This 98-nucleotide RNA from Corchorus capsularis belongs to the Rfam family "MIR398 microRNA precursor family". The source organism's lineage runs through Eukaryota, Tracheophyta, Pentapetalae, Malvaceae and Corchorus. A search with the family's covariance model found it, with a score of 80 bits. The family's consensus secondary structure was predicted with WAR. Gene Ontology terms of the family: RISC complex and miRNA-mediated post-transcriptional gene silencing. A reference for the family is Xie et al. (2005), "Expression of Arabidopsis MIRNA genes", Plant Physiol.

RNA sequence: UGGAGCCCAACAGGAGCGACAUGAGAUCACAUGUGGUCGGUACUACUUUCUUACUGUAUCUUUCAUGUGUGUUCUCAGGUCGCCCCUGCAGGGCUUCC
Number, nucleotide and partner (000 for none) at each position: 001u000002g000003g000004a000005g000006c000007c092008c091009a000010a000011c088012a087013g086014g085015a000016g083017c082018g081019a080020c000021a000022u000023g076024a075025g074026a073027u000028c071029a070030c069031a068032u067033g000034u000035g000036g000037u000038c000039g000040g000041u000042a000043c000044u000045a000046c000047u000048u000049u000050c000051u000052u000053a000054c000055u000056g000057u000058a000059u000060c000061u000062u000063u000064c000065a000066u000067g032068u031069g030070u029071g028072u000073u026074c025075u024076c023077a000078g000079g000080u019081c018082g017083c016084c000085c014086c013087u012088g011089c000090a000091g008092g007093g000094c000095u000096u000097c000098c000